[Rfam]
RNA sequence: GCUGGCGAGAGCAGCAUCUCGUUGUGACCCUAGCGGGAGCUGGUGCGCGAUGGACGGCAGUCUAGUGCAUCCCGCCCACGCAUGUCUGUUGACGGCUGCGUCCCAUUCAAGGCCGGGGUCUGUGCCGGUUGUCGAUCGGAGGAUCGGCAGUCGAGGCAGUUAAAGGCAGGCGAACCGGCUCAGGGCGGAAACGCAGCAAGCUCAGCCUGCGCCCUGGUCGGUGAAGGGAGAACGUGCCAGAGGGCAGAGCGUGGAAUCUCGGGAGGUGCUAGUCCUGUGGGACCGUGAACCUU
Numbered sequence: 001g002c003u004g005g006c007g008a009g010a011g012c013a014g015c016a017u018c019u020c021g022u023u024g025u026g027a028c029c030c031u032a033g034c035g036g037g038a039g040c041u042g043g044u045g046c047g048c049g050a051u052g053g054a055c056g057g058c059a060g061u062c063u064a065g066u067g068c069a070u071c072c073c074g075c076c077c078a079c080g081c082a083u084g085u086c087u088g089u090u091g092a093c094g095g096c097u098g099c100g101u102c103c104c105a106u107u108c109a110a111g112g113c114c115g116g117g118g119u120c121u122g123u124g125c126c127g128g129u130u131g132u133c134g135a136u137c138g139g140a141g142g143a144u145c146g147g148c149a150g151u152c153g154a155g156g157c158a159g160u161u162a163a164a165g166g167c168a169g170g171c172g173a174a175c176c177g178g179c180u181c182a183g184g185g186c187g188g189a190a191a192c193g194c195a196g197c198a199a200g201c202u203c204a205g206c207c208u209g210c211g212c213c214c215u216g217g218u219c220g221g222u223g224a225a226g227g228g229a230g231a232a233c234g235u236g237c238c239a240g241a242g243g244g245c246a247g248a249g250c251g252u253g254g255a256a257u258c259u260c261g262g263g264a265g266g267u268g269c270u271a272g273u274c275c276u277g278u279g280g281g282a283c284c285g286u287g288a289a290c291c292u293u
Stems, first nucleotide, its partner, number of pairs: 001040003004023007028037003042291003046287004051282001055280001057278004062272007070264005077253005083246005089240001094238003098235004102228002106225004111219009120159004126153012160164001166210006177202004185194003

This 293-nucleotide RNA sequence from Coccomyxa subellipsoidea belongs to the Rfam family "Metazoan signal recognition particle RNA". The signal recognition particle (SRP) is a universally conserved ribonucleoprotein. It is involved in the co-translational targeting of proteins to membranes. The eukaryotic SRP consists of a 300-nucleotide 7S RNA and six proteins: SRPs 72, 68, 54, 19, 14, and 9. Archaeal SRP consists of a 7S RNA and homologues of the eukaryotic SRP19 and SRP54 proteins. Eukaryotic and archaeal 7S RNAs have very similar secondary structures, as represented by this family. Eight helical elements fold into the Alu and S domains, separated by a long linker region. The Alu domain is thought to mediate the peptide chain elongation retardation function of the SRP. The universally conserved helix which interacts with the SRP54 M domain mediates signal sequence recognition. In eukaryotes and archaea, the SRP19-helix 6 complex is thought to be involved in SRP assembly and stabilises helix 8 for SRP54 binding. The Signal Recognition Particle Database (SRPDB) provides compilations of SRP components, with phylogenetic data and structural illustrations. Many sequences below the threshold for this family are clearly closely related, but are most likely to be SRP RNA derived pseudogenes. The human genome in particular is known to contain a large amount of SRP RNA related sequence, including Alu repeats. While the threshold of this family is set high so as to minimise the number of hits to such regions, it is likely that some remain. The source organism's lineage runs through Eukaryota, Viridiplantae, core chlorophytes, Trebouxiophyceae and Coccomyxa subellipsoidea. Rfam links the family to the GO terms SRP-dependent cotranslational protein targeting to membrane, signal sequence recognition and signal recognition particle, endoplasmic reticulum targeting. The literature on the family includes a 2002 paper in Nucleic Acids Res by Regalia et al., "Prediction of signal recognition particle RNA genes". It scores 111 bits against the family's covariance model.